[Rfam]
RNA sequence: CGGAUUCGCCGGGGGUCCGUCCAAUGCUUUGCGGACGGUGAGAAACACCCUUGGAACCUGAUCCGGGUCAUGCCGGCGUAGGGAAGGCGAGUGCAGCGCCCC
Numbered sequence: 001c002g003g004a005u006u007c008g009c010c011g012g013g014g015g016u017c018c019g020u021c022c023a024a025u026g027c028u029u030u031g032c033g034g035a036c037g038g039u040g041a042g043a044a045a046c047a048c049c050c051u052u053g054g055a056a057c058c059u060g061a062u063c064c065g066g067g068u069c070a071u072g073c074c075g076g077c078g079u080a081g082g083g084a085a086g087g088c089g090a091g092u093g094c095a096g097c098g099c100c101c102c
Stems, first nucleotide, its partner, number of pairs: 006090005011051004016045001017038005057082004063076004
This 102-nucleotide RNA from Uliginosibacterium sp. TH139 belongs to the Rfam family "TPP riboswitch aptamer (THI element)". Lineage of the source: Bacteria > Pseudomonadati > Pseudomonadota > Betaproteobacteria > Uliginosibacterium.